[Rfam]
RNA: Group I catalytic intron
RNA sequence: ACAGCAGCGUGAGAGGCGCCUGCUAGUGGGGACGCCCGCGAGGCAUCCCCGCGACAUCGUCAAAUUGCGGGAGCUCCUAAAGCCGCGUGCCAAGCGGGCGCCGAAAGGCGGUCCGUGGCCGGGGUAACGACCUAGGUACGGUAACAACGCACCGGAUGAACAAUGGACGAUCCGCAGCCAAGUCCUCUCUCCCCUUCCUCCGGGAGGAGACAGGAUGCAGUUCAACGACUAGACGGCGAUGGGUUCCGCGCCCGGGACGCGGCAUGCGCACCCGGCGCGGGGCUUAAGAUAUAGUCUCGCCCCCCGCGAAAGCGGACG
Numbered sequence: 001a002c003a004g005c006a007g008c009g010u011g012a013g014a015g016g017c018g019c020c021u022g023c024u025a026g027u028g029g030g031g032a033c034g035c036c037c038g039c040g041a042g043g044c045a046u047c048c049c050c051g052c053g054a055c056a057u058c059g060u061c062a063a064a065u066u067g068c069g070g071g072a073g074c075u076c077c078u079a080a081a082g083c084c085g086c087g088u089g090c091c092a093a094g095c096g097g098g099c100g101c102c103g104a105a106a107g108g109c110g111g112u113c114c115g116u117g118g119c120c121g122g123g124g125u126a127a128c129g130a131c132c133u134a135g136g137u138a139c140g141g142u143a144a145c146a147a148c149g150c151a152c153c154g155g156a157u158g159a160a161c162a163a164u165g166g167a168c169g170a171u172c173c174g175c176a177g178c179c180a181a182g183u184c185c186u187c188u189c190u191c192c193c194c195u196u197c198c199u200c201c202g203g204g205a206g207g208a209g210a211c212a213g214g215a216u217g218c219a220g221u222u223c224a225a226c227g228a229c230u231a232g233a234c235g236g237c238g239a240u241g242g243g244u245u246c247c248g249c250g251c252c253c254g255g256g257a258c259g260c261g262g263c264a265u266g267c268g269c270a271c272c273c274g275g276c277g278c279g280g281g282g283c284u285u286a287a288g289a290u291a292u293a294g295u296c297u298c299g300c301c302c303c304c305c306g307c308g309a310a311a312g313c314g315g316a317c318g
Stems, first nucleotide, its partner, number of pairs: 055241005061235001066176006075167003177221002182216004189209004225297001227296005243283009304315004